[Rfam]
RNA sequence: CUAACAGCUAAGAAAGAGUUAAGUAGGUUAAAGAUCACUUUUAAGAGAGGAGAUGUCACCGGCUGAAAACAUCUCUAAAAAUCUUUGAUUGAAAUUUCACUCUGGAGCUAUAUGACUGAAAUUAAGUAAGUUAUAUCGGCAUCAAAAUGUCGUUAACCAAAACUAGUGAAUUAUAAAUUUAUUAUAUAUUUAUAAUUAAUUUAGGGUGGUAUCACGGAACUGGACCUAUCUUGUUUCGUCCUAUUU
Numbered sequence: 001c002u003a004a005c006a007g008c009u010a011a012g013a014a015a016g017a018g019u020u021a022a023g024u025a026g027g028u029u030a031a032a033g034a035u036c037a038c039u040u041u042u043a044a045g046a047g048a049g050g051a052g053a054u055g056u057c058a059c060c061g062g063c064u065g066a067a068a069a070c071a072u073c074u075c076u077a078a079a080a081a082u083c084u085u086u087g088a089u090u091g092a093a094a095u096u097u098c099a100c101u102c103u104g105g106a107g108c109u110a111u112a113u114g115a116c117u118g119a120a121a122u123u124a125a126g127u128a129a130g131u132u133a134u135a136u137c138g139g140c141a142u143c144a145a146a147a148u149g150u151c152g153u154u155a156a157c158c159a160a161a162a163c164u165a166g167u168g169a170a171u172u173a174u175a176a177a178u179u180u181a182u183u184a185u186a187u188a189u190u191u192a193u194a195a196u197u198a199a200u201u202u203a204g205g206g207u208g209g210u211a212u213c214a215c216g217g218a219a220c221u222g223g224a225c226c227u228a229u230c231u232u233g234u235u236u237c238g239u240c241c242u243a244u245u246u
Stems, first nucleotide, its partner, number of pairs: 007108002015103004026090006039078002049076008111135007137152005169197010204242003214239007
T-box leader: a 246-nucleotide RNA from Halobacteroides halobius. Taxonomically the source falls in Halobacteroides halobius (Bacteria, Bacillati, Halanaerobiales, Halobacteroidaceae). It is annotated as a cis-regulatory leader. The match comes from Rfam's covariance-model search (103 bits).